[Rfam]
RNA sequence: GAUUAUAAAAGACCCUUAUCCUCUCUAUAAUCGCGGCUG
Number, nucleotide and partner (000 for none) at each position: 001g032002a031003u030004u029005a028006u027007a026008a000009a000010a000011g000012a000013c000014c000015c000016u000017u000018a000019u000020c000021c000022u000023c000024u000025c000026u007027a006028u005029a004030a003031u002032c001033g000034c000035g000036g000037c000038u000039g000

The family of this 39-nucleotide RNA sequence is "S4-Bacteroidia ribosomal protein leader". Rfam's curators put it in the seed alignment. On this family, see Eckert and Weinberg, BMC Microbiol 2020: "Discovery of 20 novel ribosomal leader candidates in bacteria and archaea". Its Rfam clan is "Ribosomal Protein S4 Leader clan".